[Rfam]
About this RNA:
The family of this 79-nucleotide RNA sequence from Pan troglodytes is "mir-1285 microRNA precursor family".
RNA sequence: ACGGGGUUUCACCUUGUUGGCCAGGCUGGUCUCGAACCAGGAGUUCAAGACCAGCCUGGCCAGCAAGGUGAAACCUCAU
Numbered sequence: 001a002c003g004g005g006g007u008u009u010c011a012c013c014u015u016g017u018u019g020g021c022c023a024g025g026c027u028g029g030u031c032u033c034g035a036a037c038c039a040g041g042a043g044u045u046c047a048a049g050a051c052c053a054g055c056c057u058g059g060c061c062a063g064c065a066a067g068g069u070g071a072a073a074c075c076u077c078a079u
Base pairs, nucleotide, nucleotide: 007073008072009071010070011069012068013067014066019061020060021059022058023057024056025055032054034052
Taxonomically the source falls in Pan (Eukaryota, Boreoeutheria, Primates, Homininae).